A member of the RNA family "terC RNA" from Qipengyuania marisflavi, 54 nucleotides long. The source organism's lineage runs through Bacteria, Pseudomonadota, Alphaproteobacteria, Erythrobacteraceae and Qipengyuania. By type it is a cis-regulatory element. The family's consensus secondary structure is taken from published work.
[Rfam]
RNA sequence: GCCACGGACCGGGCCCCUCUGGCGAGCAGAUGCUCGUGAUGUCGGACGUAUCAG
Numbered sequence: 001g002c003c004a005c006g007g008a009c010c011g012g013g014c015c016c017c018u019c020u021g022g023c024g025a026g027c028a029g030a031u032g033c034u035c036g037u038g039a040u041g042u043c044g045g046a047c048g049u050a051u052c053a054g
Base pairs, nucleotide, nucleotide: 007047009045010044011043012042022037023036024035025034026033027032